[Rfam]
RNA: Bacterial large subunit ribosomal RNA, nucleotides 565 to 791
Organism: Saccharophagus degradans
RNA sequence: GACUUAUUGUAUGUGGCCAGGUUAACCGCUUAGGGGAGCCGUAGGGAAACCGAGUCUUAAUAGGGCGUCCAGUCGCAUGCAAUAGACCCGAAACCCGGCGAUCUAUCCAUGGGCAGGUUGAAGGUUAGGUAACACUGACUGGAGGACCGAACCCACUAACGUUGAAAAGUUAGGGGAUGACCUGUGGAUCGGAGUGAAAGGCUAAUCAAGCCGGGAGAUAGCUGGUU
Numbered sequence: 001g002a003c004u005u006a007u008u009g010u011a012u013g014u015g016g017c018c019a020g021g022u023u024a025a026c027c028g029c030u031u032a033g034g035g036g037a038g039c040c041g042u043a044g045g046g047a048a049a050c051c052g053a054g055u056c057u058u059a060a061u062a063g064g065g066c067g068u069c070c071a072g073u074c075g076c077a078u079g080c081a082a083u084a085g086a087c088c089c090g091a092a093a094c095c096c097g098g099c100g101a102u103c104u105a106u107c108c109a110u111g112g113g114c115a116g117g118u119u120g121a122a123g124g125u126u127a128g129g130u131a132a133c134a135c136u137g138a139c140u141g142g143a144g145g146a147c148c149g150a151a152c153c154c155a156c157u158a159a160c161g162u163u164g165a166a167a168a169g170u171u172a173g174g175g176g177a178u179g180a181c182c183u184g185u186g187g188a189u190c191g192g193a194g195u196g197a198a199a200g201g202c203u204a205a206u207c208a209a210g211c212c213g214g215g216a217g218a219u220a221g222c223u224g225g226u227u
Base pairs, nucleotide, nucleotide: 005084006083007082008081009080010079011078012077013076014075015074016073017072020040021039022038023037026034027033044051045050054066055065056064057063087225088224090222094215095214096213097212098211099210103191105189106188107187108186109185110184111183112182113181114179116148117147118146119145123140124139125138126137127136128135152176153175154174156173157172158171159170160169193203194202195201